[Rfam]
RNA sequence: GCACUAGGCACGGUUCACCCCCAUCCUUCGGGAGGGCUAUAGGGGGUGACCGGGUUACACCACCGGAAGACCGGAACAUUGCCUUUGGGCAGCCC
Numbered sequence: 001g002c003a004c005u006a007g008g009c010a011c012g013g014u015u016c017a018c019c020c021c022c023a024u025c026c027u028u029c030g031g032g033a034g035g036g037c038u039a040u041a042g043g044g045g046g047u048g049a050c051c052g053g054g055u056u057a058c059a060c061c062a063c064c065g066g067a068a069g070a071c072c073g074g075a076a077c078a079u080u081g082c083c084u085u086u087g088g089g090c091a092g093c094c095c
Stems, first nucleotide, its partner, number of pairs: 011052004016048006024033003034095003063074004079092005
Notes:
A member of the RNA family "Tombusvirus 3' UTR region IV" from Zeavirus zeae, 95 nucleotides long. Gene Ontology term of the family: viral RNA genome replication. It scores 72 bits against the family's covariance model. The family's consensus secondary structure is taken from published work. The organism belongs to Zeavirus zeae, within Viruses. Rfam describes the family as follows. Tomato bushy stunt virus is the prototype member of the Tombusviridae family. In addition to viral proteins p33 and the RNA-dependent RNA polymerase p92, and unknown host factors, RNA signals within the UTRs are necessary for genome replication. This element contains a pseudoknot.